[Rfam]
RNA: Streptomyces sRNA 4677
RNA sequence: UGACCCGGCCGUUCACGACGCCAAAGACCAAAGAACCGGGGAAAGAACCAACCCGCCCCCACCGCCCCCGCAGCUCACCCGCAGGGGUGAACAUCACCAACUCGGCUGGCAUGGAGGGCAGUCGAUGGUGCAGCGUCAGCGCAGACAAGCCCACAAACGAAUACGGCCCCCGCCGGGACUGCCAUCCCACUGCGAGGGCCUGAUCACCAAGGAAGCGAGACCCUUCCCG
Numbered sequence: 001u002g003a004c005c006c007g008g009c010c011g012u013u014c015a016c017g018a019c020g021c022c023a024a025a026g027a028c029c030a031a032a033g034a035a036c037c038g039g040g041g042a043a044a045g046a047a048c049c050a051a052c053c054c055g056c057c058c059c060c061a062c063c064g065c066c067c068c069c070g071c072a073g074c075u076c077a078c079c080c081g082c083a084g085g086g087g088u089g090a091a092c093a094u095c096a097c098c099a100a101c102u103c104g105g106c107u108g109g110c111a112u113g114g115a116g117g118g119c120a121g122u123c124g125a126u127g128g129u130g131c132a133g134c135g136u137c138a139g140c141g142c143a144g145a146c147a148a149g150c151c152c153a154c155a156a157a158c159g160a161a162u163a164c165g166g167c168c169c170c171c172g173c174c175g176g177g178a179c180u181g182c183c184a185u186c187c188c189a190c191u192g193c194g195a196g197g198g199c200c201u202g203a204u205c206a207c208c209a210a211g212g213a214a215g216c217g218a219g220a221c222c223c224u225u226c227c228c229g
Stems, first nucleotide, its partner, number of pairs: 007208002016070002075090006105140005165200005171194003175188004211227005